[Rfam]
Nucleotides: 077
Stems, first nucleotide, its partner, number of pairs: 013046006021077007028040003050067005056061001
Number, partner (000 for none) and nucleotide at each position: 001000u002000u003000u004000a005000u006000g007000u008000g009000u010000c011000a012000a013046g014045g015044g016043g017042u018041c019000a020000u021077u022076g023075u024074a025073g026072a027071a028040g029039c030038g031000u032000g033000c034000u035000c036000g037000u038030c039029g040028c041018g042017a043016c044015c045014c046013c047000u048000g049000c050067c051066a052065g053064c054063c055000c056061u057000u058000u059000u060000c061056a062000u063054g064053g065052c066051u067050g068000c069000a070000a071027u072026u073025c074024u075023a076022c077021a
The family of this 77-nucleotide RNA sequence from Parnassius apollo is "Mammalian CPEB3 ribozyme".
The source organism's lineage runs through Eukaryota, Altocrustacea, Aparaglossata, Ditrysia and Parnassius.
Pairs were carried over by alignment from the consensus structure, which is taken from published work.
It scores 54 bits against the family's covariance model.